RNA: mir-2807 microRNA precursor family
RNA sequence: UUAACUUAAAUGUGUAUGGAGUUGAAAAGUUUGCCUACGUUUGCCGUUAGGGGCGCUGUUCCAACUGCAUACAAAAUGAGUUG
Numbered sequence: 001u002u003a004a005c006u007u008a009a010a011u012g013u014g015u016a017u018g019g020a021g022u023u024g025a026a027a028a029g030u031u032u033g034c035c036u037a038c039g040u041u042u043g044c045c046g047u048u049a050g051g052g053g054c055g056c057u058g059u060u061c062c063a064a065c066u067g068c069a070u071a072c073a074a075a076a077u078g079a080g081u082u083g
Stems, first nucleotide, its partner, number of pairs: 009077001011075001013073004018068001020066005026060002029057001034052003039047002